RNA sequence: AAAGCAGGGAUUGUGUGUAUCGGCUUAGUGCUAGCAAUGCACUUUGUACGAAAGAUUUCCCUUGCAAAAUCAUUUUGGGGCAGAUGGGCAGUUGUGAUUCAUAUACUCUAUUGAAUAGCUCAACAAUCAUCUUCCCCACAUUU
Numbered sequence: 001a002a003a004g005c006a007g008g009g010a011u012u013g014u015g016u017g018u019a020u021c022g023g024c025u026u027a028g029u030g031c032u033a034g035c036a037a038u039g040c041a042c043u044u045u046g047u048a049c050g051a052a053a054g055a056u057u058u059c060c061c062u063u064g065c066a067a068a069a070u071c072a073u074u075u076u077g078g079g080g081c082a083g084a085u086g087g088g089c090a091g092u093u094g095u096g097a098u099u100c101a102u103a104u105a106c107u108c109u110a111u112u113g114a115a116u117a118g119c120u121c122a123a124c125a126a127u128c129a130u131c132u133u134c135c136c137c138a139c140a141u142u143u
Base pairs, nucleotide, nucleotide: 004065005064006063007061008060009059010058015042016041017040018039019038020037077137078136079135080134082132083131084130085129086128087127091124092123093122094121
The family of this 143-nucleotide RNA sequence from Brassica rapa is "small nucleolar RNA snoR135". Gene Ontology terms of the family: RNA processing and nucleolus. The family has 6 seed sequences and 837 matches in Rfam 15.1. A search with the family's covariance model found it, with a score of 136 bits. It is annotated as an H/ACA-box small nucleolar RNA. The base pairs follow the family's consensus structure, which was predicted with RNAalifold. NCBI's taxonomy places the organism under Eukaryota, Embryophyta, malvids, Brassicaceae, Brassica.